U4 spliceosomal RNA: a 134-nucleotide sequence from Leptobrachium leishanense. From the family's description: U4 small nuclear RNA (U4 snRNA) is a component of the major U2-dependent spliceosome. The family's consensus secondary structure is taken from published work. A search with the family's covariance model found it, with a score of 90 bits.

RNA sequence: CGCUUUGCGCAGUGGCAGUAUAGUAGCCAAUGAGGUUUAUCCGAGGCGCGAUUAUUGCUAACUUUUCCCAAUACCCCGCUAUGACGGCUUGAAAUACAGCCGGCAAUGGCAAUGUUUGACAGUCUCCUCGGAGA
Numbered sequence: 001c002g003c004u005u006u007g008c009g010c011a012g013u014g015g016c017a018g019u020a021u022a023g024u025a026g027c028c029a030a031u032g033a034g035g036u037u038u039a040u041c042c043g044a045g046g047c048g049c050g051a052u053u054a055u056u057g058c059u060a061a062c063u064u065u066u067c068c069c070a071a072u073a074c075c076c077c078g079c080u081a082u083g084a085c086g087g088c089u090u091g092a093a094a095u096a097c098a099g100c101c102g103g104c105a106a107u108g109g110c111a112a113u114g115u116u117u118g119a120c121a122g123u124c125u126c127c128u129c130g131g132a133g134a
Stems, first nucleotide, its partner, number of pairs: 020052002023049002026047003034042002078110003082105002085102005123134004